This 83-nucleotide sequence from Ornithorhynchus anatinus belongs to the Rfam family "mir-130 microRNA precursor family". A search with the family's covariance model found it, with a score of 45 bits. Taxonomically the source falls in Ornithorhynchus (Eukaryota, Opisthokonta, Dipnotetrapodomorpha, Prototheria). Gene Ontology terms of the family: RISC complex and miRNA-mediated post-transcriptional gene silencing.
Nucleotides: 083
Base pairs, nucleotide, nucleotide: 001083002082003081005078006077007076008075009074012071013070014069015068016067017066018065019064022061023060024059026057027056028055029054
Number, partner (000 for none) and nucleotide at each position: 001083u002082c003081c004000a005078g006077g007076c008075c009074c010000g011000g012071g013070c014069u015068c016067u017066u018065u019064c020000c021000a022061c023060u024059a025000a026057g027056c028055c029054a030000c031000g032000c033000u034000g035000c036000u037000u038000c039000u040000a041000a042000g043000c044000a045000u046000g047000g048000g049000a050000a051000g052000c053000a054029u055028g056027g057026c058000c059024u060023a061022g062000u063000g064019g065018a066017a067016a068015g069014a070013g071012c072000a073000g074009g075008g076007g077006c078005c079000u080000c081003g082002g083001a